[Rfam]
RNA sequence: CUCUUAUCAAGAGAGGUGGAGGGACUGGCCCGACGAAGCCCGGCAACCGUUAAACAUAUUCUAUGUUUAAAAAGGUGCCAAUUCCUGCAGAGCAGUUAAUGCUUUGGCAGAUGAGAG
Numbered sequence: 001c002u003c004u005u006a007u008c009a010a011g012a013g014a015g016g017u018g019g020a021g022g023g024a025c026u027g028g029c030c031c032g033a034c035g036a037a038g039c040c041c042g043g044c045a046a047c048c049g050u051u052a053a054a055c056a057u058a059u060u061c062u063a064u065g066u067u068u069a070a071a072a073a074g075g076u077g078c079c080a081a082u083u084c085c086u087g088c089a090g091a092g093c094a095g096u097u098a099a100u101g102c103u104u105u106g107g108c109a110g111a112u113g114a115g116a117g
Stems, first nucleotide, its partner, number of pairs: 001117008013041001015040003021031003025087001027085002042079004047075002050070007083109001088106006